[Rfam]
Shown here is a 126-nucleotide sequence from Nannospalax galili, a member of the family "Small nucleolar RNA SNORA40".
A search with the family's covariance model found it, with a score of 78 bits.
The family's RNA type in Rfam is H/ACA-box small nucleolar RNA.
The base pairs follow the family's consensus structure, which was predicted with RNAalifold.
The organism belongs to Nannospalax, within Eukaryota.

RNA sequence: UGUGUCUGUGCAUGUUUGUCCAACCAGUAGACAAAGGCAUAAAAGACAGGUGCAAAAAUAAGUCCACUUUUGCAACCCAGAACUCAUUGUUCAGGGUGAGUUUAGAUAUAUAAAAGCAGGAAUAUG
Numbered sequence: 001u002g003u004g005u006c007u008g009u010g011c012a013u014g015u016u017u018g019u020c021c022a023a024c025c026a027g028u029a030g031a032c033a034a035a036g037g038c039a040u041a042a043a044a045g046a047c048a049g050g051u052g053c054a055a056a057a058a059u060a061a062g063u064c065c066a067c068u069u070u071u072g073c074a075a076c077c078c079a080g081a082a083c084u085c086a087u088u089g090u091u092c093a094g095g096g097u098g099a100g101u102u103u104a105g106a107u108a109u110a111u112a113a114a115a116g117c118a119g120g121a122a123u124a125u126g
Base pairs, nucleotide, nucleotide: 001054002053003052004051005050006049007048008047009046014038015035016034017033018032019031062123063122065120069116070115071114078105080103081102082101083100084099085098086097087096